[Rfam]
RNA sequence: ACAGUCUGAAAAUCACUUGGGGUCUUCUGUGGCCUCUGGUGCCAUAACUGUGCCGACAAGCAGAGGGAGCUUUAAGCUCACUGCCCACAGUAAAGUGGGGGGAGUGAUACCCAUGUUCCUAUAAUC
Numbered sequence: 001a002c003a004g005u006c007u008g009a010a011a012a013u014c015a016c017u018u019g020g021g022g023u024c025u026u027c028u029g030u031g032g033c034c035u036c037u038g039g040u041g042c043c044a045u046a047a048c049u050g051u052g053c054c055g056a057c058a059a060g061c062a063g064a065g066g067g068a069g070c071u072u073u074a075a076g077c078u079c080a081c082u083g084c085c086c087a088c089a090g091u092a093a094a095g096u097g098g099g100g101g102g103a104g105u106g107a108u109a110c111c112c113a114u115g116u117u118c119c120u121a122u123a124a125u126c
Base pairs, nucleotide, nucleotide: 006050008048010045014041015040016039021034022033023032024031066119068117069116070115072113078107079106080105081104082103086097087096088095
Notes
The record is a 126-nucleotide RNA sequence from Bucco capensis, which matches "Small nucleolar RNA ACA64" in Rfam. Rfam classes the family as an H/ACA-box small nucleolar RNA. Rfam 15.1 lists 9,537 matches to the family in 620 species.